Manganese Mn2+ riboswitch aptamer (yybP-ykoY): a 167-nucleotide sequence from Burkholderiales bacterium PBB4. Rfam 15.1 lists 1,126 matches to the family in 1,062 species. The base pairs follow the family's consensus structure. The organism belongs to Burkholderiales, within Bacteria. Rfam links the family to the GO term manganese ion binding.
RNA sequence: UGCACGGGCACUGGGGAGUAGCCGCUCUUUUUAUAGAGGCUUACGUCAACACACUUGGCCUUGCGGCCAUGGCGUAAGCGGCAGUCAUGCUUGGCAAGACCUUUGACCACUUCGCACGCCGUCAAGCCGGGGGAGCGACGUGGUCAUUCGUCUUGGUACCGGCUUGA
Numbered sequence: 001u002g003c004a005c006g007g008g009c010a011c012u013g014g015g016g017a018g019u020a021g022c023c024g025c026u027c028u029u030u031u032u033a034u035a036g037a038g039g040c041u042u043a044c045g046u047c048a049a050c051a052c053a054c055u056u057g058g059c060c061u062u063g064c065g066g067c068c069a070u071g072g073c074g075u076a077a078g079c080g081g082c083a084g085u086c087a088u089g090c091u092u093g094g095c096a097a098g099a100c101c102u103u104u105g106a107c108c109a110c111u112u113c114g115c116a117c118g119c120c121g122u123c124a125a126g127c128c129g130g131g132g133g134a135g136c137g138a139c140g141u142g143g144u145c146a147u148u149c150g151u152c153u154u155g156g157u158a159c160c161g162g163c164u165u166g167a
Base pairs, nucleotide, nucleotide: 026037027036028035039079040078041077042076043075044074045073046072047071048070056069057068058067059066060065085167086166